Rfam assigns this 407-nucleotide RNA sequence from Coprinopsis cinerea to the family "RNase MRP". Clan: RNaseP clan. On this family, see Rosenblad et al., Nucleic Acids Res 2006: "Inventory and analysis of the protein subunits of the ribonucleases P and MRP provides further evidence of homology between the yeast and human enzymes". Lineage of the source: Eukaryota > Agaricomycetidae > Agaricales > Psathyrellaceae > Coprinopsis cinerea. Rfam 15.1 lists 3,510 matches to the family in 2,315 species.
RNA sequence: CUGCCGCUGGAAGAAUCGCUGUCGCAGCUCACGUACUGAGAGCCUCGAGCUCUCUCAUUCUGCUGUGGGGAAAGUCCCCGGAGGUGCAGAGAAUAUCCUCGUUCUGCAAUGGAAAGCUGCCGAUUCCAAGCGCAUCGGUCCAGGGACGUUGGGAUGGCGAAGGUCGAUUUGGAUGCGUUCUAAGUUCGCGUUAGCGGUCUCGUUUGCAUCCUCCGCUUCGUCCACUCUGCUGCUCAGCUGAAGCCUUGUCGCGUCGGUGAAGGCGGGAAUGCGCAAAGAUAUGAGCGCGUUUCUUGCUCGGCAUGACGGGGUAACGGCUGGGCAUCUUGUUGCUCAUAGUCAUAGUUAUGCGAUUGUAGACUUGCGCAAGCGGUCGUUAACUCAAUGGGGCUCACUCUCCAACGGCA
Numbered sequence: 001c002u003g004c005c006g007c008u009g010g011a012a013g014a015a016u017c018g019c020u021g022u023c024g025c026a027g028c029u030c031a032c033g034u035a036c037u038g039a040g041a042g043c044c045u046c047g048a049g050c051u052c053u054c055u056c057a058u059u060c061u062g063c064u065g066u067g068g069g070g071a072a073a074g075u076c077c078c079c080g081g082a083g084g085u086g087c088a089g090a091g092a093a094u095a096u097c098c099u100c101g102u103u104c105u106g107c108a109a110u111g112g113a114a115a116g117c118u119g120c121c122g123a124u125u126c127c128a129a130g131c132g133c134a135u136c137g138g139u140c141c142a143g144g145g146a147c148g149u150u151g152g153g154a155u156g157g158c159g160a161a162g163g164u165c166g167a168u169u170u171g172g173a174u175g176c177g178u179u180c181u182a183a184g185u186u187c188g189c190g191u192u193a194g195c196g197g198u199c200u201c202g203u204u205u206g207c208a209u210c211c212u213c214c215g216c217u218u219c220g221u222c223c224a225c226u227c228u229g230c231u232g233c234u235c236a237g238c239u240g241a242a243g244c245c246u247u248g249u250c251g252c253g254u255c256g257g258u259g260a261a262g263g264c265g266g267g268a269a270u271g272c273g274c275a276a277a278g279a280u281a282u283g284a285g286c287g288c289g290u291u292u293c294u295u296g297c298u299c300g301g302c303a304u305g306a307c308g309g310g311g312u313a314a315c316g317g318c319u320g321g322g323c324a325u326c327u328u329g330u331u332g333c334u335c336a337u338a339g340u341c342a343u344a345g346u347u348a349u350g351c352g353a354u355u356g357u358a359g360a361c362u363u364g365c366g367c368a369a370g371c372g373g374u375c376g377u378u379a380a381c382u383c384a385a386u387g388g389g390g391c392u393c394a395c396u397c398u399c400c401a402a403c404g405g406c407a
Stems, first nucleotide, its partner, number of pairs: 002407005008401004014355006022068007038056005073392002076390004085108007110128005278326003287318002291314002297310004359375004